[Rfam]
RNA: mir-19 microRNA precursor family
RNA sequence: CCACCUGGUCAGUUUUGCUGGUUUGCAGUCAGCUUUAACUAAUGUUCGCUGUGCAAAUCCAUGCAAAACUGACUGGGCUG
Numbered sequence: 001c002c003a004c005c006u007g008g009u010c011a012g013u014u015u016u017g018c019u020g021g022u023u024u025g026c027a028g029u030c031a032g033c034u035u036u037a038a039c040u041a042a043u044g045u046u047c048g049c050u051g052u053g054c055a056a057a058u059c060c061a062u063g064c065a066a067a068a069c070u071g072a073c074u075g076g077g078c079u080g
Base pairs, nucleotide, nucleotide: 004077005076006075007074008073009072010071011070012069013068014067015066016065017064018063020060021059022057023056024055025054026053027052031050032049033048